[Rfam]
RNA sequence: ACGCGUUUUUUCCACUACGGAUCGUCGGGCACGUACCUGCCCGUGGAAAGGAAGUGU
Numbered sequence: 001a002c003g004c005g006u007u008u009u010u011u012c013c014a015c016u017a018c019g020g021a022u023c024g025u026c027g028g029g030c031a032c033g034u035a036c037c038u039g040c041c042c043g044u045g046g047a048a049a050g051g052a053a054g055u056g057u
Stems, first nucleotide, its partner, number of pairs: 008050007026043006
Dot-bracket structure: .......(((((((...........((((((......))))))))))))).......
RNA: msiK RNA
Organism: Microlunatus antarcticus